[Rfam]
RNA sequence: CAGGUACUGGUUCACGCCACUGGCAACACUAGGCGACCCAGCGACC
Numbered sequence: 001c002a003g004g005u006a007c008u009g010g011u012u013c014a015c016g017c018c019a020c021u022g023g024c025a026a027c028a029c030u031a032g033g034c035g036a037c038c039c040a041g042c043g044a045c046c
Stems, first nucleotide, its partner, number of pairs: 003046003007041004015035004022030002
Rfam assigns this 46-nucleotide RNA sequence from Rhizocola hellebori to the family "L31-Actinobacteria ribosomal protein leader". NCBI's taxonomy places the organism under Bacteria, Bacillati, Actinomycetes, Micromonosporales, Rhizocola. A reference for the family is Eckert and Weinberg (2020), "Discovery of 20 novel ribosomal leader candidates in bacteria and archaea", BMC Microbiol. The match comes from Rfam's covariance-model search (42 bits).